Source information:
A member of the RNA family "THF (Tetrahydrofolate) riboswitch aptamer" from Ligilactobacillus ceti, 103 nucleotides long. Rfam's curators write: Tetrahydrofolate (THF) riboswitch was first reported for Ames et al. as an RNA motif in 5' untranslated (5'-UTR)regions of folate transport and biosynthesis genes in Firmicutes genomes. It scores 44 bits against the family's covariance model. Rfam 15.1 lists 747 matches to the family in 747 species.
[Rfam]
RNA sequence: AGAGGGGUAGGAAAGAUGAUGUUAAUGAUCGAUGGAACGGAAUGUGAACAUCGGUAGAAUGAAUUAGUGAUUAAUUCGACGUUUUCUUUUCGCAUUCACCAUA
Numbered sequence: 001a002g003a004g005g006g007g008u009a010g011g012a013a014a015g016a017u018g019a020u021g022u023u024a025a026u027g028a029u030c031g032a033u034g035g036a037a038c039g040g041a042a043u044g045u046g047a048a049c050a051u052c053g054g055u056a057g058a059a060u061g062a063a064u065u066a067g068u069g070a071u072u073a074a075u076u077c078g079a080c081g082u083u084u085u086c087u088u089u090u091c092g093c094a095u096u097c098a099c100c101a102u103a
Stems, first nucleotide, its partner, number of pairs: 002102001004100002010091007018083002021080002026056002029054006040097005060078007